[Rfam]
RNA: Small nucleolar RNA snoR26
Organism: Handroanthus impetiginosus
RNA sequence: UGAGCAUCAAUGAUGAGCAAAAUUAAAUUGUUAUCCUUGCACUUUGAUUGCUAGUGAAGAAAACUCACGGGGAAUUUUCAUUCUGAGAUGCUU
Numbered sequence: 001u002g003a004g005c006a007u008c009a010a011u012g013a014u015g016a017g018c019a020a021a022a023u024u025a026a027a028u029u030g031u032u033a034u035c036c037u038u039g040c041a042c043u044u045u046g047a048u049u050g051c052u053a054g055u056g057a058a059g060a061a062a063a064c065u066c067a068c069g070g071g072g073a074a075u076u077u078u079c080a081u082u083c084u085g086a087g088a089u090g091c092u093u
Stems, first nucleotide, its partner, number of pairs: 002093007